This 222-nucleotide sequence from Medicago truncatula belongs to the Rfam family "MIR2619 microRNA precursor family". A search with the family's covariance model found it, with a score of 130 bits. The organism belongs to Medicago, within Eukaryota. Its family is annotated with miRNA-mediated post-transcriptional gene silencing and RISC complex in the Gene Ontology.
RNA sequence: AAACAGCCCCCUAUGUAUUGGAUCUUUGGCAGUUUUGGCCCCCAAGACCAAUUUUGACUUGGUCAAUGCACACGUGGACGUCACGUUUUUUUUUUAAAUUAAAAAAUAAUAAUUUUUCUAAAAAAAUAUUUAUUUAUUUUAAAUUACCACAUCAUCGAAGACCAAAUCAAAAUUGACCUUGGGGGCCAAAACUACUAAAGAUCCAAUACAUAGGGGCUGUUU
Numbered sequence: 001a002a003a004c005a006g007c008c009c010c011c012u013a014u015g016u017a018u019u020g021g022a023u024c025u026u027u028g029g030c031a032g033u034u035u036u037g038g039c040c041c042c043c044a045a046g047a048c049c050a051a052u053u054u055u056g057a058c059u060u061g062g063u064c065a066a067u068g069c070a071c072a073c074g075u076g077g078a079c080g081u082c083a084c085g086u087u088u089u090u091u092u093u094u095u096a097a098a099u100u101a102a103a104a105a106a107u108a109a110u111a112a113u114u115u116u117u118c119u120a121a122a123a124a125a126a127u128a129u130u131u132a133u134u135u136a137u138u139u140u141a142a143a144u145u146a147c148c149a150c151a152u153c154a155u156c157g158a159a160g161a162c163c164a165a166a167u168c169a170a171a172a173u174u175g176a177c178c179u180u181g182g183g184g185g186c187c188a189a190a191a192c193u194a195c196u197a198a199a200g201a202u203c204c205a206a207u208a209c210a211u212a213g214g215g216g217c218u219g220u221u222u
Stems, first nucleotide, its partner, number of pairs: 001222002004219005012212018031193015072152001075149003